A member of the RNA family "mir-9215 microRNA precursor family" from Eptesicus fuscus, 83 nucleotides long. It is one of the family's seed sequences. Pairs were carried over by alignment from the consensus structure, which was predicted with RNAalifold. The organism belongs to Eptesicus, within Eukaryota.

RNA sequence: AAGAGCUCCUACACUAGGACGUGUGGCUGCCGUGGGUUGGUGGGAACCAGGCUCGCCCAGGGUCAGUGCUACCAGCGUUCAGU
Numbered sequence: 001a002a003g004a005g006c007u008c009c010u011a012c013a014c015u016a017g018g019a020c021g022u023g024u025g026g027c028u029g030c031c032g033u034g035g036g037u038u039g040g041u042g043g044g045a046a047c048c049a050g051g052c053u054c055g056c057c058c059a060g061g062g063u064c065a066g067u068g069c070u071a072c073c074a075g076c077g078u079u080c081a082g083u
Base pairs, nucleotide, nucleotide: 001079002078005076006075007074012068013067014066015065017064020061022059023058025057026056027055029052030051031050035048036047037046038045